[Rfam]
RNA sequence: GUGAAGUGACGAGGAAAUUCAUGGUCUGUCAAUCCACUGAUUGAAUGUGAUGUUAUUCGUGAAUCCCGACAGGUUCUGAUCAC
Numbered sequence: 001g002u003g004a005a006g007u008g009a010c011g012a013g014g015a016a017a018u019u020c021a022u023g024g025u026c027u028g029u030c031a032a033u034c035c036a037c038u039g040a041u042u043g044a045a046u047g048u049g050a051u052g053u054u055a056u057u058c059g060u061g062a063a064u065c066c067c068g069a070c071a072g073g074u075u076c077u078g079a080u081c082a083c
Stems, first nucleotide, its partner, number of pairs: 001083004
A member of the RNA family "Small nucleolar RNA snoR14" from Dioscorea zingiberensis, 83 nucleotides long. It is annotated as a C/D-box small nucleolar RNA. The pairing is the family consensus, mapped onto this sequence. The family has 7 seed sequences and 668 matches in Rfam 15.1. Taxonomically the source falls in Dioscorea (Eukaryota, Streptophytina, Tracheophyta, Petrosaviidae).